[Rfam]
RNA sequence: UUUGUGCUCCCACGUGGCGUUAUGUCACCCAAUCCCCCCAGGGCAGGAAUGCAGCAAGGGUAAGUGGCCUCUGACGGGUGCGUGGGAGUUUUCAUAU
Numbered sequence: 001u002u003u004g005u006g007c008u009c010c011c012a013c014g015u016g017g018c019g020u021u022a023u024g025u026c027a028c029c030c031a032a033u034c035c036c037c038c039c040a041g042g043g044c045a046g047g048a049a050u051g052c053a054g055c056a057a058g059g060g061u062a063a064g065u066g067g068c069c070u071c072u073g074a075c076g077g078g079u080g081c082g083u084g085g086g087a088g089u090u091u092u093c094a095u096a097u
Stems, first nucleotide, its partner, number of pairs: 004091001006089009015078001018076005024068005035060003043052003
The family of this 97-nucleotide sequence from Bifidobacterium aquikefiri is "Bacterial small signal recognition particle RNA". The source organism's lineage runs through Bacteria, Actinomycetota, Actinomycetes, Bifidobacteriaceae and Bifidobacterium. On this family, see Rosenblad et al., RNA Biol 2009: "Kinship in the SRP RNA family".